[Rfam]
RNA sequence: UGUGCCGCAAGGCGGACUUAUGCUGUAACCCACAGCGUAGCCCAUAGAACGGGCAUUAGACUACUAUUAUAGGAGAAAAAAAUG
Numbered sequence: 001u002g003u004g005c006c007g008c009a010a011g012g013c014g015g016a017c018u019u020a021u022g023c024u025g026u027a028a029c030c031c032a033c034a035g036c037g038u039a040g041c042c043c044a045u046a047g048a049a050c051g052g053g054c055a056u057u058a059g060a061c062u063a064c065u066a067u068u069a070u071a072g073g074a075g076a077a078a079a080a081a082a083u084g
Stems, first nucleotide, its partner, number of pairs: 001016001003014004019039007040054004
RNA: freshwater-2 RNA